About this RNA
Shown here is a 117-nucleotide sequence, a member of the family "LOOT RNA".
RNA sequence: GACCUAAACCAAUGACUUCGGUCGCUGGCAUGGUUUCAAAUCGUAGUGCAUAGAGAACCCGUCAUUCAGGGCGUGCACUACGUUAUACAGGGAAACUUGUAUAGGGCCGCAAGGCCU
Numbered sequence: 001g002a003c004c005u006a007a008a009c010c011a012a013u014g015a016c017u018u019c020g021g022u023c024g025c026u027g028g029c030a031u032g033g034u035u036u037c038a039a040a041u042c043g044u045a046g047u048g049c050a051u052a053g054a055g056a057a058c059c060c061g062u063c064a065u066u067c068a069g070g071g072c073g074u075g076c077a078c079u080a081c082g083u084u085a086u087a088c089a090g091g092g093a094a095a096c097u098u099g100u101a102u103a104g105g106g107c108c109g110c111a112a113g114g115c116c117u
Stems, first nucleotide, its partner, number of pairs: 001035004009028003013024003042082010058071003084103008104117005

By type it is a small RNA.
Pairs were carried over by alignment from the consensus structure, which is taken from published work.